[Rfam]
RNA sequence: GAGUCGUGGUGUGUGGCGAGGUUAACCCGUGUGGGGUAGCCGUAGCGAAAGCGAGUCUGAAUAGGGCGGUUGAGUCGCAUGCUGUGGACCCGAAGCGGAGUGAUCUACCCAUGGCCAGGGUGAAGCGGAGGUAAGACUUCGUGGAGGCCCGAACCCACCAGGGUUGAAAACCUGGGGGAUGAGCUGUGGGUAGGGGUGAAAGGCCAAUCAAACUCCGUGAUAGCUGGUU
Numbered sequence: 001g002a003g004u005c006g007u008g009g010u011g012u013g014u015g016g017c018g019a020g021g022u023u024a025a026c027c028c029g030u031g032u033g034g035g036g037u038a039g040c041c042g043u044a045g046c047g048a049a050a051g052c053g054a055g056u057c058u059g060a061a062u063a064g065g066g067c068g069g070u071u072g073a074g075u076c077g078c079a080u081g082c083u084g085u086g087g088a089c090c091c092g093a094a095g096c097g098g099a100g101u102g103a104u105c106u107a108c109c110c111a112u113g114g115c116c117a118g119g120g121u122g123a124a125g126c127g128g129a130g131g132u133a134a135g136a137c138u139u140c141g142u143g144g145a146g147g148c149c150c151g152a153a154c155c156c157a158c159c160a161g162g163g164u165u166g167a168a169a170a171c172c173u174g175g176g177g178g179a180u181g182a183g184c185u186g187u188g189g190g191u192a193g194g195g196g197u198g199a200a201a202g203g204c205c206a207a208u209c210a211a212a213c214u215c216c217g218u219g220a221u222a223g224c225u226g227g228u229u
Stems, first nucleotide, its partner, number of pairs: 005086013020041004026035003045052002055067004089227002092224001096217006105193011116181001118150004125142006154178003158175005195205003
A member of the RNA family "Bacterial large subunit ribosomal RNA" from Streptomonospora alba, 229 nucleotides of a longer RNA. NCBI's taxonomy places the organism under Bacteria, Bacillati, Streptosporangiales, Nocardiopsidaceae, Streptomonospora. A search with the family's covariance model found it, with a score of 2583 bits.